[Rfam]
RNA: Group II catalytic intron D1-D4-3
Organism: Pedobacter antarcticus
RNA sequence: UACUCUGCGAGGAGGAAUCUGAAGGAAGCCUGCGGUAAAUCUCUGGCCUGAGGAACAGGAAGCAGAUGAGGCAAUGACAUGUGGGUGAGUUUGCAUUCCAAACGAAGCCCUAAACUAUCCGAAAUGUGUUGUUGUAGAUCUGACAGGUAGAUGGAGAGAAAGUUUGCGCU
Number, nucleotide and partner (000 for none) at each position: 001u016002a000003c014004u013005c012006u011007g000008c000009g000010a000011g006012g005013a004014g003015g000016a001017a000018u000019c000020u000021g000022a000023a000024g000025g000026a000027a000028g170029c000030c168031u000032g000033c000034g000035g163036u162037a000038a000039a000040u157041c156042u155043c154044u153045g152046g148047c147048c146049u145050g144051a000052g000053g000054a000055a000056c000057a000058g000059g000060a000061a000062g000063c142064a141065g140066a139067u000068g000069a000070g000071g135072c134073a133074a000075u131076g130077a129078c128079a127080u126081g125082u000083g110084g109085g108086u107087g000088a000089g103090u102091u101092u100093g000094c000095a000096u000097u000098c000099c000100a092101a091102a090103c089104g000105a000106a000107g086108c085109c084110c083111u000112a000113a000114a000115c000116u000117a000118u000119c000120c000121g000122a000123a000124a000125u081126g080127u079128g078129u077130u076131g075132u000133u073134g072135u071136a000137g000138a000139u066140c065141u064142g063143a000144c050145a049146g048147g047148u046149a000150g000151a000152u045153g044154g043155a042156g041157a040158g000159a000160a000161a000162g036163u035164u000165u000166g000167c000168g030169c000170u028